[Rfam]
RNA sequence: UGAGUAGCCUCGCGCCACCGUCCGACCCCCCGACCCGACGGCGGCGCGGGGCUGCCUA
Numbered sequence: 001u002g003a004g005u006a007g008c009c010u011c012g013c014g015c016c017a018c019c020g021u022c023c024g025a026c027c028c029c030c031c032g033a034c035c036c037g038a039c040g041g042c043g044g045c046g047c048g049g050g051g052c053u054g055c056c057u058a
Base pairs, nucleotide, nucleotide: 002057004055005054007052008051009050010049011048012047013046014045015044016043018041019040020039021038022037

The record is a 58-nucleotide RNA sequence from Mycobacteroides abscessus, which matches "F6 TB sRNA" in Rfam. The sequence is in the family's curated seed alignment. The family's consensus secondary structure is taken from published work. A reference for the family is Arnvig and Young (2009), "Identification of small RNAs in Mycobacterium tuberculosis", Mol Microbiol.